[Rfam]
RNA sequence: AACUAGCACGGAUGUCAAAUUGCAAUUCAGUCUACUUUCCCGUGACUGCAGUUGUGCCGAAGAUGUGCUGAUAUCAAUGACGAAGAGUCGGUUCUCACUCGAGAGCUGUGUUUUUCUAAAGUAGCAAGCAGCCUGGAAUCCGGGCGCGUGGCGAACGGGACAUCGUAAGGUUCUCGGCCGCACCGAAUUGCGCACAUAU
Number, nucleotide and partner (000 for none) at each position: 001a000002a000003c000004u070005a069006g068007c067008a066009c065010g064011g000012a000013u000014g000015u000016c000017a000018a000019a000020u000021u000022g000023c054024a053025a052026u051027u000028c000029a047030g046031u045032c044033u000034a000035c000036u000037u000038u000039c000040c000041c000042g000043u000044g032045a031046c030047u029048g000049c000050a000051g026052u025053u024054g023055u000056g000057c000058c000059g000060a000061a000062g000063a000064u010065g009066u008067g007068c006069u005070g004071a000072u000073a000074u000075c000076a000077a000078u000079g000080a000081c000082g000083a000084a000085g000086a000087g000088u000089c185090g184091g183092u000093u000094c000095u000096c000097a000098c148099u000100c146101g145102a000103g000104a000105g000106c000107u000108g000109u000110g000111u000112u000113u000114u000115u000116c000117u000118a000119a000120a000121g000122u000123a000124g000125c000126a000127a000128g000129c000130a000131g000132c000133c000134u000135g000136g000137a000138a000139u000140c000141c000142g000143g000144g000145c101146g100147c000148g098149u000150g000151g181152c180153g179154a000155a000156c176157g175158g000159g173160a172161c000162a000163u000164c000165g000166u000167a000168a000169g000170g000171u000172u160173c159174u000175c157176g156177g000178c000179c153180g152181c151182a000183c091184c090185g089186a000187a000188u000189u000190g000191c000192g000193c000194a000195c000196a000197u000198a000199u000
This 199-nucleotide RNA from Leptographium clavigerum belongs to the Rfam family "Small nucleolar RNA snR85".
The match comes from Rfam's covariance-model search (38 bits).
Clan: SNORA5 clan.
For this family Rfam cites "Genome-wide searching for pseudouridylation guide snoRNAs: analysis of the Saccharomyces cerevisiae genome" (Schattner et al., Nucleic Acids Res, 2004).